[Rfam]
RNA: wcaG RNA
RNA sequence: UCGGGUUUCUUGCUUUUCCUUAAGAGUAAGUGGUGCGGAUGGGUUUACUCCCGCCUGGUUUACAUGUUCCAGUCAAAAAUAUGUUGGUGGAGUCAAUUA
Numbered sequence: 001u002c003g004g005g006u007u008u009c010u011u012g013c014u015u016u017u018c019c020u021u022a023a024g025a026g027u028a029a030g031u032g033g034u035g036c037g038g039a040u041g042g043g044u045u046u047a048c049u050c051c052c053g054c055c056u057g058g059u060u061u062a063c064a065u066g067u068u069c070c071a072g073u074c075a076a077a078a079a080u081a082u083g084u085u086g087g088u089g090g091a092g093u094c095a096a097u098u099a
Stems, first nucleotide, its partner, number of pairs: 009030006016024001040053004055072004062084006